[Rfam]
RNA sequence: GGCCUAGUGGUCUAGGUGUAUGAUACUCGCUUCGGGUGCGAGUGGUCCCGGGUUCGAAUCCCGGCUGGGCCC
Numbered sequence: 001g002g003c004c005u006a007g008u009g010g011u012c013u014a015g016g017u018g019u020a021u022g023a024u025a026c027u028c029g030c031u032u033c034g035g036g037u038g039c040g041a042g043u044g045g046u047c048c049c050g051g052g053u054u055c056g057a058a059u060c061c062c063g064g065c066u067g068g069g070c071c072c
Base pairs, nucleotide, nucleotide: 001071002070003069004068005067006066007065010024011023012022026042027041028040029039030038048064049063050062051061052060